[Rfam]
tRNA: a 74-nucleotide RNA sequence from Roseicella aerolata. The family's consensus secondary structure is taken from published work.
RNA sequence: GCGCCCGUAGCUCAGUUGGAUAGAGCACGCGCCUUCUAAGCGUGGGGUCGCAGGUUCGAAUCCUGCCGGGCGCG
Numbered sequence: 001g002c003g004c005c006c007g008u009a010g011c012u013c014a015g016u017u018g019g020a021u022a023g024a025g026c027a028c029g030c031g032c033c034u035u036c037u038a039a040g041c042g043u044g045g046g047g048u049c050g051c052a053g054g055u056u057c058g059a060a061u062c063c064u065g066c067c068g069g070g071c072g073c074g
Stems, first nucleotide, its partner, number of pairs: 001073007010026004028044005050066005
The source organism's lineage runs through Bacteria, Pseudomonadota, Acetobacterales, Roseomonadaceae and Roseicella.